[Rfam]
RNA sequence: GAAGUUGUCGUCUUCGGCGGACAGCAAAGCCUGGAUGAAAUGCGGGGGAAUGUCGGCGAAACGGAUGGGAGAACGCCGCAUCUCGCCGAACUCGGCAAUCAGCUUUCCAUCGCUGCUGUAUACCCGCAAAGGGAUCUGCAACUGGAUGCUUCUCAGGGCCUCUACCGAGGGCAGGCUGGGGCUAAGAUACAGAAACGCGCCGCUCAGACCGAGCACGACGGCACAGAUGACUGCGACGAAAGACCACCAGAAGAACUUCAGCAGGCGUAUCAAGGCUUUGGGGUGUCCAGUUUG
Numbered sequence: 001g002a003a004g005u006u007g008u009c010g011u012c013u014u015c016g017g018c019g020g021a022c023a024g025c026a027a028a029g030c031c032u033g034g035a036u037g038a039a040a041u042g043c044g045g046g047g048g049a050a051u052g053u054c055g056g057c058g059a060a061a062c063g064g065a066u067g068g069g070a071g072a073a074c075g076c077c078g079c080a081u082c083u084c085g086c087c088g089a090a091c092u093c094g095g096c097a098a099u100c101a102g103c104u105u106u107c108c109a110u111c112g113c114u115g116c117u118g119u120a121u122a123c124c125c126g127c128a129a130a131g132g133g134a135u136c137u138g139c140a141a142c143u144g145g146a147u148g149c150u151u152c153u154c155a156g157g158g159c160c161u162c163u164a165c166c167g168a169g170g171g172c173a174g175g176c177u178g179g180g181g182c183u184a185a186g187a188u189a190c191a192g193a194a195a196c197g198c199g200c201c202g203c204u205c206a207g208a209c210c211g212a213g214c215a216c217g218a219c220g221g222c223a224c225a226g227a228u229g230a231c232u233g234c235g236a237c238g239a240a241a242g243a244c245c246a247c248c249a250g251a252a253g254a255a256c257u258u259c260a261g262c263a264g265g266c267g268u269a270u271c272a273a274g275g276c277u278u279u280g281g282g283g284u285g286u287c288c289a290g291u292u293u294g
Base pairs, nucleotide, nucleotide: 010172011171012170013169014168015167016166017165019163020162021161025045029041047084048083050081051080052079054078055077057075058074062069086095087094088093102159103158104157105155108148109147110146111145115142117140118139119138120137122135123133124132125131176290177289178288179287180286183283186279187278197268198267199266200265201264202262203261204260206258207257214238219233221232244253
Dot-bracket structure: .........((((((((.(((...(...(...........)...).((.(((.((.((...(......)....)).))))).)).(((....)))......((((..((((...(.((((.((((.....))).).)))).)..))))......).))).))).))))))))...(((((..(..((.........((((((((.((......(....(.(..........))....).....(........)...)).))).))))).........))...)..)))))....
The record is a 294-nucleotide sequence from Pseudomonas sp. 1239, which matches "anti ponA RNA" in Rfam.
The match comes from Rfam's covariance-model search (176 bits).
Pairs were carried over by alignment from the consensus structure, which was predicted with RNAfold.
It is annotated as an antisense RNA.